[Rfam]
RNA sequence: GAUUGUCUUAAGUGGACUAGGGUCCAGAAACAAAAAGCCCCGCUUGUACGGGGCUUUUUGUUGCAAAUUUUGGUUUUCUGUAUCUGGGCAUAUCGCCCUUUUUUU
Numbered sequence: 001g002a003u004u005g006u007c008u009u010a011a012g013u014g015g016a017c018u019a020g021g022g023u024c025c026a027g028a029a030a031c032a033a034a035a036a037g038c039c040c041c042g043c044u045u046g047u048a049c050g051g052g053g054c055u056u057u058u059u060g061u062u063g064c065a066a067a068u069u070u071u072g073g074u075u076u077u078c079u080g081u082a083u084c085u086g087g088g089c090a091u092a093u094c095g096c097c098c099u100u101u102u103u104u105u
Stems, first nucleotide, its partner, number of pairs: 034057009086098004